[Rfam]
RNA sequence: GGGCAUAUGGUGUAGUGGUAUCACGCCUCAUUUGCAGCUGCAUCGGUAACGGUGCCCCGCGAUUUGAGGCGGCCCUGGGUUCGAUCCCCAGUGUGUCCA
Dot-bracket structure: (((((((..(((.........))).(((((..................................))))).....(((((.......)))))))))))).
Numbered sequence: 001g002g003g004c005a006u007a008u009g010g011u012g013u014a015g016u017g018g019u020a021u022c023a024c025g026c027c028u029c030a031u032u033u034g035c036a037g038c039u040g041c042a043u044c045g046g047u048a049a050c051g052g053u054g055c056c057c058c059g060c061g062a063u064u065u066g067a068g069g070c071g072g073c074c075c076u077g078g079g080u081u082c083g084a085u086c087c088c089c090a091g092u093g094u095g096u097c098c099a
Stems, first nucleotide, its partner, number of pairs: 001098007010024003026069005075091005